The record is a 350-nucleotide RNA from Veillonella montpellierensis, which matches "Bacterial RNase P class A" in Rfam. The family is grouped with related families in Rfam's "RNaseP clan". Taxonomically the source falls in Veillonella montpellierensis (Bacteria, Bacillati, Bacillota, Veillonella). From the family's description: Ribonuclease P (RNase P) is a ubiquitous endoribonuclease, found in archaea, bacteria and eukarya as well as chloroplasts and mitochondria.
RNA sequence: CAAGUAUGAAAGACGAUUGCGAGCUAUUAUAGUUCGAGGAAAGUCCGAGCUCCAUAGGGCAGGAUGCCAGAUAACGUCUGGCGAGGGUAACCUUAGGGAAAGUGCCAUAGAAAAGAAGACCGCCAUAAAUAUAUGGUAAGGGUGGAACGGUGCGGUAAGAGCGCACCAGCAACUUGGUAACAAGUUUGGCUUGGUAAACCCCAUCUGGAGCAAGGCCUAAUAGAAAAGGGUUGAGGUGGCCCGCCGACCUUUCGGGUUGUGCCGCUUGAACGUAUGGGUGACCAUACGUCUAGAAAGAUAAUCGUCACUGUGUAAACAGAACAGAACUCGGCUUAUUGAUUGCUUGCCAU
Numbered sequence: 001c002a003a004g005u006a007u008g009a010a011a012g013a014c015g016a017u018u019g020c021g022a023g024c025u026a027u028u029a030u031a032g033u034u035c036g037a038g039g040a041a042a043g044u045c046c047g048a049g050c051u052c053c054a055u056a057g058g059g060c061a062g063g064a065u066g067c068c069a070g071a072u073a074a075c076g077u078c079u080g081g082c083g084a085g086g087g088u089a090a091c092c093u094u095a096g097g098g099a100a101a102g103u104g105c106c107a108u109a110g111a112a113a114a115g116a117a118g119a120c121c122g123c124c125a126u127a128a129a130u131a132u133a134u135g136g137u138a139a140g141g142g143u144g145g146a147a148c149g150g151u152g153c154g155g156u157a158a159g160a161g162c163g164c165a166c167c168a169g170c171a172a173c174u175u176g177g178u179a180a181c182a183a184g185u186u187u188g189g190c191u192u193g194g195u196a197a198a199c200c201c202c203a204u205c206u207g208g209a210g211c212a213a214g215g216c217c218u219a220a221u222a223g224a225a226a227a228g229g230g231u232u233g234a235g236g237u238g239g240c241c242c243g244c245c246g247a248c249c250u251u252u253c254g255g256g257u258u259g260u261g262c263c264g265c266u267u268g269a270a271c272g273u274a275u276g277g278g279u280g281a282c283c284a285u286a287c288g289u290c291u292a293g294a295a296a297g298a299u300a301a302u303c304g305u306c307a308c309u310g311u312g313u314a315a316a317c318a319g320a321a322c323a324g325a326a327c328u329c330g331g332c333u334u335a336u337u338g339a340u341u342g343c344u345u346g347c348c349a350u
Stems, first nucleotide, its partner, number of pairs: 001346006010337002012306007020036007041334003045331005050210004057242004062206005067081005082096001083094004097201002102199002104195003120141002122137006149167006169190001170188002172185005214263003217259001225252005235245003270289008